A member of the RNA family "Dengue virus SLA" from Orthoflavivirus nilense, 77 nucleotides long. The sequence is in the family's curated seed alignment. The base pairs follow the family's consensus structure, which is taken from published work. About the family: Flavivirus stem-loop A (SLA) is a secondary structure present in the 5 prime untranslated (5'-UTR) region of viruses of the genus Flavivirus. For this family Rfam cites "Structure of the dengue virus RNA promoter" (Sun and Varani, RNA, 2022). Lineage of the source: Viruses > Orthornavirae > Flasuviricetes > Euflavivirus > Orthoflavivirus nilense. Gene Ontology term of the family: viral RNA genome replication.

RNA sequence: AGUAGUUCGCCUGUGUGAGCUGACAAACUUAGUAGUGUUUGUGAGGAUUAACAACAAUUAACACAGUGCGAGCUGUU
Numbered sequence: 001a002g003u004a005g006u007u008c009g010c011c012u013g014u015g016u017g018a019g020c021u022g023a024c025a026a027a028c029u030u031a032g033u034a035g036u037g038u039u040u041g042u043g044a045g046g047a048u049u050a051a052c053a054a055c056a057a058u059u060a061a062c063a064c065a066g067u068g069c070g071a072g073c074u075g076u077u
Stems, first nucleotide, its partner, number of pairs: 001077009011066006020046002027036003047059001049057001
Dot-bracket structure: (((((((((.((((((...((.....(((....)))........))(.(.......).).))))))..)))))))))